[Rfam]
RNA sequence: GCUGUUCCGUGAUGAGACCCUGGAAUGAGCGCUGGGCACGGCGCCCGAGCCAGACUGCGGAAACGUUCCUUGCUGCCUUCCUUCUGAGAACAGC
Numbered sequence: 001g002c003u004g005u006u007c008c009g010u011g012a013u014g015a016g017a018c019c020c021u022g023g024a025a026u027g028a029g030c031g032c033u034g035g036g037c038a039c040g041g042c043g044c045c046c047g048a049g050c051c052a053g054a055c056u057g058c059g060g061a062a063a064c065g066u067u068c069c070u071u072g073c074u075g076c077c078u079u080c081c082u083u084c085u086g087a088g089a090a091c092a093g094c
Stems, first nucleotide, its partner, number of pairs: 001094005
RNA: Small nucleolar RNA U83B
Organism: Echinops telfairi